[Rfam]
RNA sequence: AUGGCGAAUGCAGGUGGAACUACAUGCCUACGAUGCCGGUUGUCGCGGGUUCGAUCCCCGCCGGUCUCACCAGGGACCGUAGCUCAGCGGAUAGAGCACCGAACGUUUCACCGAUCCUUGUCGCCGAUCU
Numbered sequence: 001a002u003g004g005c006g007a008a009u010g011c012a013g014g015u016g017g018a019a020c021u022a023c024a025u026g027c028c029u030a031c032g033a034u035g036c037c038g039g040u041u042g043u044c045g046c047g048g049g050u051u052c053g054a055u056c057c058c059c060g061c062c063g064g065u066c067u068c069a070c071c072a073g074g075g076a077c078c079g080u081a082g083c084u085c086a087g088c089g090g091a092u093a094g095a096g097c098a099c100c101g102a103a104c105g106u107u108u109c110a111c112c113g114a115u116c117c118u119u120g121u122c123g124c125c126g127a128u129c130u
Stems, first nucleotide, its partner, number of pairs: 002126006013112007023101001038100003045061005062079006082097004
RNA: Y RNA-like